This 167-nucleotide RNA sequence from Paenibacillus sp. IHBB 10380 belongs to the Rfam family "FMN riboswitch aptamer (RFN element)".
[Rfam]
RNA sequence: UUUAUCCUUCGGGGCAGGGUGAAAUUCCCUACCGACGGUGAUGGAGUAUUGUUAGACUUUCUUACAAUACAACUUAGUCCGUGACCCGUACGCGUGUAACUUAGGCGUACGGUUGACCUGGUGUAAUUCUGGGACCGACAGUAUAGUCUGGAUGGGAGAAGGAUAAA
Numbered sequence: 001u002u003u004a005u006c007c008u009u010c011g012g013g014g015c016a017g018g019g020u021g022a023a024a025u026u027c028c029c030u031a032c033c034g035a036c037g038g039u040g041a042u043g044g045a046g047u048a049u050u051g052u053u054a055g056a057c058u059u060u061c062u063u064a065c066a067a068u069a070c071a072a073c074u075u076a077g078u079c080c081g082u083g084a085c086c087c088g089u090a091c092g093c094g095u096g097u098a099a100c101u102u103a104g105g106c107g108u109a110c111g112g113u114u115g116a117c118c119u120g121g122u123g124u125a126a127u128u129c130u131g132g133g134a135c136c137g138a139c140a141g142u143a144u145a146g147u148c149u150g151g152a153u154g155g156g157a158g159a160a161g162g163a164u165a166a167a
Base pairs, nucleotide, nucleotide: 003165004164005163006162007161008160009159010158017029018028019027031147032146033137034136035082036081037080038079055135086112087111088110089109090108117133118132119131120130121129139150140149141148